Shown here is a 120-nucleotide RNA sequence from Cervus elaphus, a member of the family "Small nucleolar RNA SNORA70".
NCBI's taxonomy places the organism under Eukaryota, Opisthokonta, Sarcopterygii, Eutheria, Cervus elaphus.
The base pairs follow the family's consensus structure, which was predicted with PFOLD.
From the family's description: snoRNA U70 seems to be exclusive to mammals and is a member of the H/ACA class of snoRNA which contain H (ANANNA) and ACA box motifs. H/ACA box snoRNAs are involved in the conversion of uridines to pseudouridines (5-ribosyluracil) a constituent of structural RNAs (transfer, ribosomal, small nuclear, and small nucleolar).
RNA sequence: UUGCAACCACUUAGGCUGACUGUGCUCUUCCUCACAGGGGCCCAGUGUGCAAUGGCCGCAAACAGCAGCCUCCCGGGCCAUUGCCUGUACAGGUUGCCCUAAGAAGCCGAGGAGACAACU
Numbered sequence: 001u002u003g004c005a006a007c008c009a010c011u012u013a014g015g016c017u018g019a020c021u022g023u024g025c026u027c028u029u030c031c032u033c034a035c036a037g038g039g040g041c042c043c044a045g046u047g048u049g050c051a052a053u054g055g056c057c058g059c060a061a062a063c064a065g066c067a068g069c070c071u072c073c074c075g076g077g078c079c080a081u082u083g084c085c086u087g088u089a090c091a092g093g094u095u096g097c098c099c100u101a102a103g104a105a106g107c108c109g110a111g112g113a114g115a116c117a118a119c120u
Stems, first nucleotide, its partner, number of pairs: 002051004019046004025040004076108003081096001083094004